The family of this 57-nucleotide sequence from Capsicum annuum is "Plastid-ndhJ 3UTR RNA".
About the family: Plastid ndhJ is a non-coding RNA (ncRNA) present in plastids. It was identified as a short stem-loop motif in the 3 prime untranslate region (3UTR) of ndhJ gene.
[Rfam]
RNA sequence: UCAUAAAUUUUGUACUGCGCACAUUACAUAGAUGGGUUCUACAAGGGCAUAUAGAAA
Numbered sequence: 001u002c003a004u005a006a007a008u009u010u011u012g013u014a015c016u017g018c019g020c021a022c023a024u025u026a027c028a029u030a031g032a033u034g035g036g037u038u039c040u041a042c043a044a045g046g047g048c049a050u051a052u053a054g055a056a057a
Stems, first nucleotide, its partner, number of pairs: 019037002022034004
For this family Rfam cites "Retrograde signaling in plants: A critical review focusing on the GUN pathway and beyond" (Richter et al., Plant Commun, 2023). Taxonomically the source falls in Capsicum (Eukaryota, Magnoliopsida, Gunneridae, Solanoideae).